The record is a 63-nucleotide sequence from Microlunatus endophyticus, which matches "Fluoride riboswitch aptamer (crcB RNA motif)" in Rfam. The base pairs follow the family's consensus structure, which is taken from published work. It scores 45 bits against the family's covariance model.
[Rfam]
RNA sequence: GCCGUUACAGGUGAUGAGGCCCGCCGAAACCGCGGAGAUUCCGCUGAUGGCUUCUACCCCAUG
Numbered sequence: 001g002c003c004g005u006u007a008c009a010g011g012u013g014a015u016g017a018g019g020c021c022c023g024c025c026g027a028a029a030c031c032g033c034g035g036a037g038a039u040u041c042c043g044c045u046g047a048u049g050g051c052u053u054c055u056a057c058c059c060c061a062u063g
Stems, first nucleotide, its partner, number of pairs: 010025004016054006032044004